The record is a 90-nucleotide sequence from Xenopus tropicalis, which matches "mir-191 microRNA precursor family" in Rfam. It scores 54 bits against the family's covariance model. Pairs were carried over by alignment from the consensus structure, which was predicted with RNAalifold. NCBI's taxonomy places the organism under Eukaryota, Chordata, Amphibia, Batrachia, Silurana. Gene Ontology terms of the family: RISC complex and miRNA-mediated post-transcriptional gene silencing.

RNA sequence: UACAGUAUCUAGUAGAAUUAAGUCUAAAAACAACUGGACUUUUCAGAAAAGUCCAGUUGUUUUUAGACUUAAUUCUACUAGAUACUGUAU
Numbered sequence: 001u002a003c004a005g006u007a008u009c010u011a012g013u014a015g016a017a018u019u020a021a022g023u024c025u026a027a028a029a030a031c032a033a034c035u036g037g038a039c040u041u042u043u044c045a046g047a048a049a050a051g052u053c054c055a056g057u058u059g060u061u062u063u064u065a066g067a068c069u070u071a072a073u074u075c076u077a078c079u080a081g082a083u084a085c086u087g088u089a090u
Stems, first nucleotide, its partner, number of pairs: 009081005017073011030060007